[Rfam]
RNA sequence: UAUAAAAUUAAAGCGCCAGGACUUAAGUAAAAAUAACUUGUAAUUUUGCUUAAGUUGACGAGGAUGGGGAGUAUCGAAUCUUCGGCGGGUGCCCCACGGUAUACGCACUACCGUUAACGACUGAUAAAAGCAGGAAGUGAUUCCUGAAACAACAUCAGUCUGGUGUAAAAA
Numbered sequence: 001u002a003u004a005a006a007a008u009u010a011a012a013g014c015g016c017c018a019g020g021a022c023u024u025a026a027g028u029a030a031a032a033a034u035a036a037c038u039u040g041u042a043a044u045u046u047u048g049c050u051u052a053a054g055u056u057g058a059c060g061a062g063g064a065u066g067g068g069g070a071g072u073a074u075c076g077a078a079u080c081u082u083c084g085g086c087g088g089g090u091g092c093c094c095c096a097c098g099g100u101a102u103a104c105g106c107a108c109u110a111c112c113g114u115u116a117a118c119g120a121c122u123g124a125u126a127a128a129a130g131c132a133g134g135a136a137g138u139g140a141u142u143c144c145u146g147a148a149a150c151a152a153c154a155u156c157a158g159u160c161u162g163g164u165g166u167a168a169a170a171a
Stems, first nucleotide, its partner, number of pairs: 020056008029047004065096005074085004097113005119160005131146006

glmS glucosamine-6-phosphate activated ribozyme aptamer: a 171-nucleotide sequence from Clostridium sp. cel8. A search with the family's covariance model found it, with a score of 119 bits. The source organism's lineage runs through Bacteria, Bacillati, Clostridia, Eubacteriales and Clostridium.